The family of this 32-nucleotide sequence is "DUF805b RNA". The sequence is in the family's curated seed alignment.
RNA sequence: AAUGCGAAAGCCGAAAAGCAAAAGAGUAGGCA
Number, nucleotide and partner (000 for none) at each position: 001a000002a000003u020004g019005c018006g000007a000008a000009a000010g031011c030012c029013g000014a000015a000016a000017a000018g005019c004020a003021a000022a000023a000024g000025a000026g000027u000028a000029g012030g011031c010032a000